A member of the RNA family "U11 spliceosomal RNA" from Manihot esculenta, 128 nucleotides long. A search with the family's covariance model found it, with a score of 78 bits.
[Rfam]
RNA sequence: UAAAAGGGUCGGUUGGCUAAUUAUGCCGCACUCGCCCUCGUCCGGUGAGUGCCGUAUGGCAAUCAAGACAUAUGGCCGACAUAAUUUGUGGAAACUUAUAGGGUUGGCUCGCACGGCCGACCCUCUUA
Numbered sequence: 001u002a003a004a005a006g007g008g009u010c011g012g013u014u015g016g017c018u019a020a021u022u023a024u025g026c027c028g029c030a031c032u033c034g035c036c037c038u039c040g041u042c043c044g045g046u047g048a049g050u051g052c053c054g055u056a057u058g059g060c061a062a063u064c065a066a067g068a069c070a071u072a073u074g075g076c077c078g079a080c081a082u083a084a085u086u087u088g089u090g091g092a093a094a095c096u097u098a099u100a101g102g103g104u105u106g107g108c109u110c111g112c113a114c115g116g117c118c119g120a121c122c123c124u125c126u127u128a
Base pairs, nucleotide, nucleotide: 008080009079010078011077012076014028015027016026017025029051030050031049032048033047034046035045036044052075053074054073055072056071057070058069098126100124101123102122103121104120105119106118107117108116109115